[Rfam]
RNA sequence: UGCCCAGUGAUGAUACCCAUCCUUGCUCCCCGUGCCCCCCGGGCUGUGGGCGACAUCAUGGCUGCCCCCAGGUUGUGCCAGUUGGGCUGAUGCCUGGGGGCUGAGGGCA
Numbered sequence: 001u002g003c004c005c006a007g008u009g010a011u012g013a014u015a016c017c018c019a020u021c022c023u024u025g026c027u028c029c030c031c032g033u034g035c036c037c038c039c040c041g042g043g044c045u046g047u048g049g050g051c052g053a054c055a056u057c058a059u060g061g062c063u064g065c066c067c068c069c070a071g072g073u074u075g076u077g078c079c080a081g082u083u084g085g086g087c088u089g090a091u092g093c094c095u096g097g098g099g100g101c102u103g104a105g106g107g108c109a
Base pairs, nucleotide, nucleotide: 001109002108003107004106005105